This 230-nucleotide RNA sequence from Texcoconibacillus texcoconensis belongs to the Rfam family "Group II catalytic intron D1-D4-6". Rfam's curators write: Group II introns are found in rRNA, tRNA and mRNA of organelles in fungi, plants and protists, and also in mRNA in bacteria.

RNA sequence: GGCUUCCUGGCGAGUAAGAGCUAGCCACUCACUCGUAGCGAGUCUUGGAGGAUAGGAGGUAACUCCUAUCUUUAAGCGUAGACAGUUAGGUGAUGGGCCGUAAGCUAUGGUUGAAGGGGUUGAGCCUCGAAAUCCUAAACGCGAGUGCUGAUACACUGGUCCGUGUAGAAAGCAAUACUUUCUUUAUCGUUAAAGGCUAGAAAAGGAGGGCUCCUCGGGUUGAUAAAACG
Numbered sequence: 001g002g003c004u005u006c007c008u009g010g011c012g013a014g015u016a017a018g019a020g021c022u023a024g025c026c027a028c029u030c031a032c033u034c035g036u037a038g039c040g041a042g043u044c045u046u047g048g049a050g051g052a053u054a055g056g057a058g059g060u061a062a063c064u065c066c067u068a069u070c071u072u073u074a075a076g077c078g079u080a081g082a083c084a085g086u087u088a089g090g091u092g093a094u095g096g097g098c099c100g101u102a103a104g105c106u107a108u109g110g111u112u113g114a115a116g117g118g119g120u121u122g123a124g125c126c127u128c129g130a131a132a133u134c135c136u137a138a139a140c141g142c143g144a145g146u147g148c149u150g151a152u153a154c155a156c157u158g159g160u161c162c163g164u165g166u167a168g169a170a171a172g173c174a175a176u177a178c179u180u181u182c183u184u185u186a187u188c189g190u191u192a193a194a195g196g197c198u199a200g201a202a203a204a205g206g207a208g209g210g211c212u213c214c215u216c217g218g219g220u221u222g223a224u225a226a227a228a229c230g
Stems, first nucleotide, its partner, number of pairs: 010036005018030003022199004038086002042083004046078002048073011124221001126219004141215001143213004147173003152167004178209004183205003187201002
The pairing is the family consensus, mapped onto this sequence.
The source organism's lineage runs through Bacteria, Bacillota, Bacilli, Caryophanales and Texcoconibacillus.
Its family is annotated with Group II intron splicing in the Gene Ontology.